Shown here is a 76-nucleotide RNA, a member of the family "CyVA-1 RNA". Rfam's curators write: Cyanobacteria, Acidobacteria (1 example), Verrucomicrobia (1 example).
RNA sequence: AGGGCGGCACAGAUUUUUCACCGUUUCCUCUGUUAAGAACGGCCGAAGGAGAACGGUGUCAGGCCGUUCACGCUCU
Numbered sequence: 001a002g003g004g005c006g007g008c009a010c011a012g013a014u015u016u017u018u019c020a021c022c023g024u025u026u027c028c029u030c031u032g033u034u035a036a037g038a039a040c041g042g043c044c045g046a047a048g049g050a051g052a053a054c055g056g057u058g059u060c061a062g063g064c065c066g067u068u069c070a071c072g073c074u075c076u
Stems, first nucleotide, its partner, number of pairs: 001076006009033004037069008